RNA sequence: UCUUCAUUUCACACACUCUCUCGUCUUACUGACUGGUGAGAUAGUGUGAAGAAUGAAGAGA
Dot-bracket structure: (((((((....((((((.((((...............)))).))))))....)))))))..
Shown here is a 61-nucleotide RNA sequence from Pristionchus pacificus, a member of the family "mir-8364 microRNA precursor family". The organism belongs to Pristionchus, within Eukaryota.